[Rfam]
RNA sequence: AAACCAAUAGUUCCGCUACUUAAGACAGCAGGUAUCGAGAGGUUUAAUCGCGCAAGCGGCCCGCCGAGGUGGUAGAUGAAUUCGCGACAGUGAAUAUCUGCGGCCUCCGUCUUCUGGGCGGGGGCCGUUUCUUUUCACAAGU
Number, nucleotide and partner (000 for none) at each position: 001a000002a000003a000004c000005c000006a000007a000008u000009a000010g000011u000012u000013c000014c000015g000016c000017u000018a000019c000020u000021u000022a000023a000024g000025a000026c000027a000028g064029c063030a000031g061032g060033u059034a043035u042036c041037g000038a000039g000040a000041g036042g035043u034044u000045u000046a000047a000048u000049c000050g000051c000052g000053c000054a000055a000056g000057c000058g000059g033060c032061c031062c000063g029064c028065c000066g000067a000068g000069g000070u000071g000072g000073u000074a000075g000076a000077u000078g000079a000080a000081u000082u000083c000084g000085c000086g000087a000088c000089a000090g000091u000092g000093a000094a000095u000096a000097u000098c000099u000100g000101c127102g126103g125104c124105c123106u122107c121108c120109g119110u118111c000112u000113u000114c000115u000116g000117g000118g110119c109120g108121g107122g106123g105124g104125c103126c102127g101128u000129u000130u000131c000132u000133u000134u000135u000136c000137a000138c000139a000140a000141g000142u000
RNA: Ribosomal protein L10 leader
Organism: Parvibacter caecicola